RNA sequence: ACCUGUGUCGAAAGUGACUCUGGCAUGACUGUUGCCAUCGUCAUUGAUAGUGCAGGAACAGUGAUCUGAAAGCUUUUCCCGUGUUUGUUGGAAUAACUCUUCCUGUCAAACCCUGUGUCUUUCAAACA
Numbered sequence: 001a002c003c004u005g006u007g008u009c010g011a012a013a014g015u016g017a018c019u020c021u022g023g024c025a026u027g028a029c030u031g032u033u034g035c036c037a038u039c040g041u042c043a044u045u046g047a048u049a050g051u052g053c054a055g056g057a058a059c060a061g062u063g064a065u066c067u068g069a070a071a072g073c074u075u076u077u078c079c080c081g082u083g084u085u086u087g088u089u090g091g092a093a094u095a096a097c098u099c100u101u102c103c104u105g106u107c108a109a110a111c112c113c114u115g116u117g118u119c120u121u122u123c124a125a126a127c128a
Stems, first nucleotide, its partner, number of pairs: 002056007013045006022036004065125001067124006083111005088105001090103003
Dot-bracket structure: .(((((((....((((((...((((.......))))...))))))....)))))))........(.((((((..........((((((.(((........))).).))))).......)))))))...
Rfam assigns this 128-nucleotide RNA sequence from Hucho hucho to the family "Small nucleolar RNA SNORA71". From the family's description: The members of this family belong to the H/ACA class of snoRNAs which bind a number of proteins (including dyskerin, Gar1p and Nop10p) to form snoRNP complexes. This class of snoRNAs are thought to guide the sites of modification of uridines to pseudouridines by forming direct base pairing interactions with substrate RNAs. This family includes U71 (SNORA71), ACA39 (SNORA39) and ACA60 (SNORA60). U71 and ACA60 are predicted to guide the pseudouridylation of U406 and U1004 in 18S rRNA respectively. Its family is annotated with nucleolus and RNA processing in the Gene Ontology.